Shown here is a 316-nucleotide sequence from Methanosphaera stadtmanae, a member of the family "Archaeal signal recognition particle RNA". The family's RNA type in Rfam is non-coding RNA gene. The family is grouped with related families in Rfam's "SRP clan". A reference for the family is Wild et al. (2002), "Towards the structure of the mammalian signal recognition particle", Curr Opin Struct Biol. The family's consensus secondary structure is taken from published work. Gene Ontology terms of the family: signal recognition particle, plasma membrane targeting and SRP-dependent cotranslational protein targeting to membrane, signal sequence recognition.
[Rfam]
RNA sequence: UGUUAGGCUAGGUUGGGAGGCUAGUGGUCUCUUGUAAGCUCAAAUCCUCUAUAUGGAGCGACCGAAGUUUUUGGAGAGGCAUAUUAAAUGCUAAUAAGCCUAUUUCUAUGAUGUAGAAGUUUCGUCCCGUAGGAUUAGCGGUAGUAGGAAUUCAACUGGAGGGUUGAAUUUAACUAUUUUAAUUAAUUGAAUGGGUCAGGUCUGGAAAGAAGCAGCUCUGUUUUAGACAACUGAUGUUUACGGAUUAACGGGAUGGAGUUAUGGAUUUAGAUAACUUAUUUUUAUGAGGUAUGUCCAUCCAAUUACAUGCCGUUUA
Numbered sequence: 001u002g003u004u005a006g007g008c009u010a011g012g013u014u015g016g017g018a019g020g021c022u023a024g025u026g027g028u029c030u031c032u033u034g035u036a037a038g039c040u041c042a043a044a045u046c047c048u049c050u051a052u053a054u055g056g057a058g059c060g061a062c063c064g065a066a067g068u069u070u071u072u073g074g075a076g077a078g079g080c081a082u083a084u085u086a087a088a089u090g091c092u093a094a095u096a097a098g099c100c101u102a103u104u105u106c107u108a109u110g111a112u113g114u115a116g117a118a119g120u121u122u123c124g125u126c127c128c129g130u131a132g133g134a135u136u137a138g139c140g141g142u143a144g145u146a147g148g149a150a151u152u153c154a155a156c157u158g159g160a161g162g163g164u165u166g167a168a169u170u171u172a173a174c175u176a177u178u179u180u181a182a183u184u185a186a187u188u189g190a191a192u193g194g195g196u197c198a199g200g201u202c203u204g205g206a207a208a209g210a211a212g213c214a215g216c217u218c219u220g221u222u223u224u225a226g227a228c229a230a231c232u233g234a235u236g237u238u239u240a241c242g243g244a245u246u247a248a249c250g251g252g253a254u255g256g257a258g259u260u261a262u263g264g265a266u267u268u269a270g271a272u273a274a275c276u277u278a279u280u281u282u283u284a285u286g287a288g289g290u291a292u293g294u295c296c297a298u299c300c301a302a303u304u305a306c307a308u309g310c311c312g313u314u315u316a
Stems, first nucleotide, its partner, number of pairs: 001316002006311003011063004015033007038059004043054001067306002071302005078295004084288001088285003093280006100270003105265008114256001119254007127243007134235005140228001141180001143178005148171010183226004193218004201210003